RNA sequence: GGGCAAGACAGGUGAGGUAGGCCCACCGGCAAGCCGGCGGGCCUACCUCACUUUCCUAAUUCGCGCUACGCACUCAAACGGGAGUCUUGCUCUCCGAGGGG
Number, nucleotide and partner (000 for none) at each position: 001g092002g091003g090004c089005a088006a087007g086008a085009c084010a000011g000012g051013u050014g049015a048016g047017g046018u000019a044020g043021g042022c000023c000024c039025a000026c037027c036028g035029g034030c000031a000032a000033g000034c029035c028036g027037g026038c000039g024040g000041g000042c021043c020044u019045a000046c017047c016048u015049c014050a013051c012052u000053u000054u082055c080056c000057u000058a000059a000060u000061u000062c000063g073064c000065g071066c070067u000068a000069c000070g066071c065072a000073c063074u000075c000076a000077a000078a000079c000080g055081g000082g054083a000084g009085u008086c007087u006088u005089g004090c003091u002092c001093u000094c000095c000096g000097a000098g000099g000100g000101g000
Rfam assigns this 101-nucleotide RNA from Pseudomonas mangiferae to the family "traJ-II RNA". The family's RNA type in Rfam is cis-regulatory element. The family's consensus secondary structure is taken from published work.